[Rfam]
RNA sequence: CGCGGAGACACGCCCAAUCCCUCCCCCAGGGAGCCGGGGAACCACCGGUGGCACGCCUGCGUACCACCACUCGGGGUGAAUCCGAUACUCGGUAGGGCUGCUCCGGCCCGAACCCGUCAGCUAACCCGGUAGGCGUCGAUGAGAGGAGCU
Numbered sequence: 001c002g003c004g005g006a007g008a009c010a011c012g013c014c015c016a017a018u019c020c021c022u023c024c025c026c027c028a029g030g031g032a033g034c035c036g037g038g039g040a041a042c043c044a045c046c047g048g049u050g051g052c053a054c055g056c057c058u059g060c061g062u063a064c065c066a067c068c069a070c071u072c073g074g075g076g077u078g079a080a081u082c083c084g085a086u087a088c089u090c091g092g093u094a095g096g097g098c099u100g101c102u103c104c105g106g107c108c109c110g111a112a113c114c115c116g117u118c119a120g121c122u123a124a125c126c127c128g129g130u131a132g133g134c135g136u137c138g139a140u141g142a143g144a145g146g147a148g149c150u
Base pairs, nucleotide, nucleotide: 011135012134013133014132018032019031020030021029022028033130034129035128036127037126038125043073074115075114076113082092083091084090085089095109096108097107098106
Shown here is a 150-nucleotide sequence from Nonomuraea pusilla, a member of the family "c-di-AMP riboswitch aptamer (ydaO/yuaA leader)". Its family is annotated with regulation of gene expression and cyclic-di-AMP binding in the Gene Ontology. From the family's description: This family represents a conserved RNA structure found upstream of the ydaO and yuaA genes in Bacillus subtilis and related genes in other bacteria. It scores 91 bits against the family's covariance model. The source organism's lineage runs through Bacteria, Bacillati, Actinomycetota, Streptosporangiales and Nonomuraea.